[Rfam]
RNA sequence: ACACGAGAAGGGAGGUGGUUCGGCAGAUGAUUUCGCACCGGACGCGUGAGGUGACUGCGGGCUAGCGGCCCGUCGUCGCACUCAGUGUGCAGCGCCGGACCAGCGCAGGAAACAGCUGCGCAGCCGGCCAAUCCCAAGCAGUCACCCGACCCGCGGGCUGCCGGUUCGUCCGACCGGCCCCUUCGCGCCUCAGGCGCGGGGAAGCAGCCCGCGGGUCGUCUGCG
Numbered sequence: 001a002c003a004c005g006a007g008a009a010g011g012g013a014g015g016u017g018g019u020u021c022g023g024c025a026g027a028u029g030a031u032u033u034c035g036c037a038c039c040g041g042a043c044g045c046g047u048g049a050g051g052u053g054a055c056u057g058c059g060g061g062c063u064a065g066c067g068g069c070c071c072g073u074c075g076u077c078g079c080a081c082u083c084a085g086u087g088u089g090c091a092g093c094g095c096c097g098g099a100c101c102a103g104c105g106c107a108g109g110a111a112a113c114a115g116c117u118g119c120g121c122a123g124c125c126g127g128c129c130a131a132u133c134c135c136a137a138g139c140a141g142u143c144a145c146c147c148g149a150c151c152c153g154c155g156g157g158c159u160g161c162c163g164g165u166u167c168g169u170c171c172g173a174c175c176g177g178c179c180c181c182u183u184c185g186c187g188c189c190u191c192a193g194g195c196g197c198g199g200g201g202a203a204g205c206a207g208c209c210c211g212c213g214g215g216u217c218g219u220c221u222g223c224g
Base pairs, nucleotide, nucleotide: 015058016057017056018055019054060129061128062127063126065124066123068121069120071118147218148217149216150215151214152213153212154211155210156209157208158207159206160178161177162176163175164174165173
The family of this 224-nucleotide sequence is "Actinobacteria sRNA Ms_IGR-5". The base pairs follow the family's consensus structure. The family's RNA type in Rfam is small RNA.